The family of this 56-nucleotide RNA from Streptomyces pristinaespiralis is "L17-Actino-Proteobacteria ribosomal protein leader". The sequence is in the family's curated seed alignment. Taxonomically the source falls in Streptomyces pristinaespiralis (Bacteria, Kitasatosporales, Streptomycetaceae, Streptomyces).
[Rfam]
RNA sequence: CCCUCCGGCGACCGCCAGGAGGGAACUGACACCGGUACCUGACACGGCCGGUGCAG
Numbered sequence: 001c002c003c004u005c006c007g008g009c010g011a012c013c014g015c016c017a018g019g020a021g022g023g024a025a026c027u028g029a030c031a032c033c034g035g036u037a038c039c040u041g042a043c044a045c046g047g048c049c050g051g052u053g054c055a056g
Stems, first nucleotide, its partner, number of pairs: 001023006007016002026056003030053007